[Rfam]
RNA sequence: CUUUUUUGGUGCAAAAUACGCGCCGUGCAAAUAACCGACGCCUUAAAGCGUCGGUUAUUUUUUUGC
Numbered sequence: 001c002u003u004u005u006u007u008g009g010u011g012c013a014a015a016a017u018a019c020g021c022g023c024c025g026u027g028c029a030a031a032u033a034a035c036c037g038a039c040g041c042c043u044u045a046a047a048g049c050g051u052c053g054g055u056u057a058u059u060u061u062u063u064u065g066c
Stems, first nucleotide, its partner, number of pairs: 011021002032057009
RNA: Enterobacterial sRNA STnc240